The record is a 674-nucleotide RNA sequence from Gymnopus androsaceus, which matches "Nuclear RNase P" in Rfam. The organism belongs to Gymnopus androsaceus, within Eukaryota. It scores 45 bits against the family's covariance model. Pairs were carried over by alignment from the consensus structure, which is taken from published work.
RNA sequence: GCAGACAUAACACCACGAUGCUCGCUCCGUACAGAACCGUUUGUGUUCUCUUUUGCGAGCGGGUAAGGUCUGAGUAUGCUUUGUUUAUGGACUCUAGCUGGGUUCAGGACUAAGCUUCCUGCCGACAUAUUCAGAAAUUCGCCAGCCAUCAUGCAUCAUCUGGAUGGACUUACGCGGGUUGACCUCGGUAAGGAUGUCGCGCGCUUGCGCGGCAUUUGGGUUGGAAAUUGUCGUGAAGCUUGGGUACCUUUGAACUUCUUUCGCGUGCUCUAUCGGCAUAACAAGUCUCAACCUAGAGACUCGGGUCCUAGUACUCGUAUUUGUGUUUAUAAGAGGGGGCUCUCGAUCUCGAUGCUAUGUAAAGGGCCUGCUUAUAUUUCUUGUCCCAAUGCGUAUAUCUGGAAGCUGGAAGUUUACUUUCGGUCAAGCUGGAAAUUUCGGUUUCCGAUGGAUCAGGCCUUUUUAGGUCUGUACUGGUGCGCGUGCAUUUGGCGCCCAAUGGCUUUCCUUGAAUCGGAAGAGUCCAGUGCGCCGUGCCAGUGGUACGCAUCCCAUGUACGAGGAGAAAUCAUGCUUCAGAGGUUCAAGGUGCCUUUAGUGCACUUUGUGGUACGUGUUUGACGACAUCUUUGGUGUAGUCGCGCGCAACUCGAUUCAGACUACUCUAUGUCUGC
Numbered sequence: 001g002c003a004g005a006c007a008u009a010a011c012a013c014c015a016c017g018a019u020g021c022u023c024g025c026u027c028c029g030u031a032c033a034g035a036a037c038c039g040u041u042u043g044u045g046u047u048c049u050c051u052u053u054u055g056c057g058a059g060c061g062g063g064u065a066a067g068g069u070c071u072g073a074g075u076a077u078g079c080u081u082u083g084u085u086u087a088u089g090g091a092c093u094c095u096a097g098c099u100g101g102g103u104u105c106a107g108g109a110c111u112a113a114g115c116u117u118c119c120u121g122c123c124g125a126c127a128u129a130u131u132c133a134g135a136a137a138u139u140c141g142c143c144a145g146c147c148a149u150c151a152u153g154c155a156u157c158a159u160c161u162g163g164a165u166g167g168a169c170u171u172a173c174g175c176g177g178g179u180u181g182a183c184c185u186c187g188g189u190a191a192g193g194a195u196g197u198c199g200c201g202c203g204c205u206u207g208c209g210c211g212g213c214a215u216u217u218g219g220g221u222u223g224g225a226a227a228u229u230g231u232c233g234u235g236a237a238g239c240u241u242g243g244g245u246a247c248c249u250u251u252g253a254a255c256u257u258c259u260u261u262c263g264c265g266u267g268c269u270c271u272a273u274c275g276g277c278a279u280a281a282c283a284a285g286u287c288u289c290a291a292c293c294u295a296g297a298g299a300c301u302c303g304g305g306u307c308c309u310a311g312u313a314c315u316c317g318u319a320u321u322u323g324u325g326u327u328u329a330u331a332a333g334a335g336g337g338g339g340c341u342c343u344c345g346a347u348c349u350c351g352a353u354g355c356u357a358u359g360u361a362a363a364g365g366g367c368c369u370g371c372u373u374a375u376a377u378u379u380c381u382u383g384u385c386c387c388a389a390u391g392c393g394u395a396u397a398u399c400u401g402g403a404a405g406c407u408g409g410a411a412g413u414u415u416a417c418u419u420u421c422g423g424u425c426a427a428g429c430u431g432g433a434a435a436u437u438u439c440g441g442u443u444u445c446c447g448a449u450g451g452a453u454c455a456g457g458c459c460u461u462u463u464u465a466g467g468u469c470u471g472u473a474c475u476g477g478u479g480c481g482c483g484u485g486c487a488u489u490u491g492g493c494g495c496c497c498a499a500u501g502g503c504u505u506u507c508c509u510u511g512a513a514u515c516g517g518a519a520g521a522g523u524c525c526a527g528u529g530c531g532c533c534g535u536g537c538c539a540g541u542g543g544u545a546c547g548c549a550u551c552c553c554a555u556g557u558a559c560g561a562g563g564a565g566a567a568a569u570c571a572u573g574c575u576u577c578a579g580a581g582g583u584u585c586a587a588g589g590u591g592c593c594u595u596u597a598g599u600g601c602a603c604u605u606u607g608u609g610g611u612a613c614g615u616g617u618u619u620g621a622c623g624a625c626a627u628c629u630u631u632g633g634u635g636u637a638g639u640c641g642c643g644c645g646c647a648a649c650u651c652g653a654u655u656c657a658g659a660c661u662a663c664u665c666u667a668u669g670u671c672u673g674c
Stems, first nucleotide, its partner, number of pairs: 001674004007668003012611007020060005034048004070658005079238004090104005105121005123233005142220002613645005
Gene Ontology terms of the family: ribonuclease P complex, tRNA processing and ribonuclease P activity.